[Rfam]
RNA sequence: CUUAACUUUACAACCGAGGAUGGGAAUGACGGAACCAAGUAUCCCGAAACCAUCCCGCGAAUACUCCUGCGCGCGUCAUGUUUAACAGAACAUGAGAUGUGAAGUACAGGUAGAUUCGGCAGAACGAAGGCUGGAGCCAUUCUAAUAGAAAAGGUAUGCCAAUGGAUAUGCCGCGCGGCUGAAAA
Numbered sequence: 001c002u003u004a005a006c007u008u009u010a011c012a013a014c015c016g017a018g019g020a021u022g023g024g025a026a027u028g029a030c031g032g033a034a035c036c037a038a039g040u041a042u043c044c045c046g047a048a049a050c051c052a053u054c055c056c057g058c059g060a061a062u063a064c065u066c067c068u069g070c071g072c073g074c075g076u077c078a079u080g081u082u083u084a085a086c087a088g089a090a091c092a093u094g095a096g097a098u099g100u101g102a103a104g105u106a107c108a109g110g111u112a113g114a115u116u117c118g119g120c121a122g123a124a125c126g127a128a129g130g131c132u133g134g135a136g137c138c139a140u141u142c143u144a145a146u147a148g149a150a151a152a153g154g155u156a157u158g159c160c161a162a163u164g165g166a167u168a169u170g171c172c173g174c175g176c177g178g179c180u181g182a183a184a185a
Stems, first nucleotide, its partner, number of pairs: 018055006031045002034042001056177004066110004070101004076095008117173005125164002129160002131148003

Record summary:
This 185-nucleotide sequence from Paenibacillus ferrarius belongs to the Rfam family "Group II catalytic intron D1-D4-5". The literature on the family includes a 2001 paper in Trends Genet by Bonen and Vogel, "The ins and outs of group II introns". From the family's description: Group II introns are found in rRNA, tRNA and mRNA of organelles in fungi, plants and protists, and also in mRNA in bacteria.